The record is a 508-nucleotide RNA sequence from Streptacidiphilus fuscans, which matches "Saccharopolyspora sRNA 350" in Rfam.
NCBI's taxonomy places the organism under Bacteria, Bacillati, Actinomycetota, Streptomycetaceae, Streptacidiphilus.
It is annotated as an antisense RNA.
Its family is annotated with regulation of secondary metabolite biosynthetic process in the Gene Ontology.
Pairs were carried over by alignment from the consensus structure, which was predicted with RNAfold.
[Rfam]
RNA sequence: UUCGCCGUGUACUCCCACAGCGCGUCGUCGCGCAGCAGCGCCUCGUCGCCGAAGUGGUCGCCGUUGGCGAGGACGCCGAGGACGGCAGCGCUGUCCCCGAACUUGCCGGUGCCCACCUUCUGCACCUUGCCGUGGGCGAUGACCAGCACGUGGUCGACGACUUCGCCGUACUCGGCGAUGACCUCGCCCGCGGCGAAGUCCCGCUGGGUGAAGCGCGAGGCGAGCUCGGUGAGGAGCGCGUCCUCCCCGAAGCCGCGGAGCGGCGGCAGCUCCGCGAGGCUCGGCGGCACGAUCCGGGUCUCCGCCCCGGUCUGUGCGAAGCUGAGCCGGCCUCGGCCGGUCGCAUAACUCAGGCGGCGGUUGACCCGGUAGGUGCCACCGGACACCUGCACCCACGGCAGCAUGCGGAGCAACCACCGAGAGGUGAUGCCCUGCAUCUGCGGCGGGGUCUUGGUCGUGGUGGCGAGGUUCUUCGCGGCGGCGGUACCGAGCGCAGUCGGCUCCGCCG
Numbered sequence: 001u002u003c004g005c006c007g008u009g010u011a012c013u014c015c016c017a018c019a020g021c022g023c024g025u026c027g028u029c030g031c032g033c034a035g036c037a038g039c040g041c042c043u044c045g046u047c048g049c050c051g052a053a054g055u056g057g058u059c060g061c062c063g064u065u066g067g068c069g070a071g072g073a074c075g076c077c078g079a080g081g082a083c084g085g086c087a088g089c090g091c092u093g094u095c096c097c098c099g100a101a102c103u104u105g106c107c108g109g110u111g112c113c114c115a116c117c118u119u120c121u122g123c124a125c126c127u128u129g130c131c132g133u134g135g136g137c138g139a140u141g142a143c144c145a146g147c148a149c150g151u152g153g154u155c156g157a158c159g160a161c162u163u164c165g166c167c168g169u170a171c172u173c174g175g176c177g178a179u180g181a182c183c184u185c186g187c188c189c190g191c192g193g194c195g196a197a198g199u200c201c202c203g204c205u206g207g208g209u210g211a212a213g214c215g216c217g218a219g220g221c222g223a224g225c226u227c228g229g230u231g232a233g234g235a236g237c238g239c240g241u242c243c244u245c246c247c248c249g250a251a252g253c254c255g256c257g258g259a260g261c262g263g264c265g266g267c268a269g270c271u272c273c274g275c276g277a278g279g280c281u282c283g284g285c286g287g288c289a290c291g292a293u294c295c296g297g298g299u300c301u302c303c304g305c306c307c308c309g310g311u312c313u314g315u316g317c318g319a320a321g322c323u324g325a326g327c328c329g330g331c332c333u334c335g336g337c338c339g340g341u342c343g344c345a346u347a348a349c350u351c352a353g354g355c356g357g358c359g360g361u362u363g364a365c366c367c368g369g370u371a372g373g374u375g376c377c378a379c380c381g382g383a384c385a386c387c388u389g390c391a392c393c394c395a396c397g398g399c400a401g402c403a404u405g406c407g408g409a410g411c412a413a414c415c416a417c418c419g420a421g422a423g424g425u426g427a428u429g430c431c432c433u434g435c436a437u438c439u440g441c442g443g444c445g446g447g448g449u450c451u452u453g454g455u456c457g458u459g460g461u462g463g464c465g466a467g468g469u470u471c472u473u474c475g476c477g478g479c480g481g482c483g484g485u486a487c488c489g490a491g492c493g494c495a496g497u498c499g500g501c502u503c504c505g506c507c508g
Stems, first nucleotide, its partner, number of pairs: 007392005018330001020328001023324002026321001028319002035315004040311003045308001048305002051302002054239002058232006066113003075106001077105004083099003121224001123222001125220002129216002133212001134209001137206002141202001146199002153194001158190002162186001163181002167177003240299004248291002252288004256283002259281003263275003334343002355381003359377002364374003394434002397431004402426003406421001410418001440479002443476001445474004450468003454464002480507005487500004